The record is an 89-nucleotide RNA from Variovorax sp. MHTC-1, which matches "Glycine riboswitch aptamer" in Rfam.
About the family: This family represents the bacterial glycine riboswitch. Glycine riboswitches usually consist of two metabolite-binding aptamers domains with similar structures in tandem. The aptamers cooperatively bind glycine to regulate the expression of downstream genes.
[Rfam]
RNA sequence: GUCAGGAGAGAGCCUCGAGAGCGCGGGGCCGCCGAAGGCGCAGGUCCCCUCGAAAAAGCGGGCCCGAACGCUCAGGCAAAAGGACUGAC
Dot-bracket structure: (((((......((((..........)))).(((((..(((..((...................))...))))).))).......)))))
A search with the family's covariance model found it, with a score of 46 bits.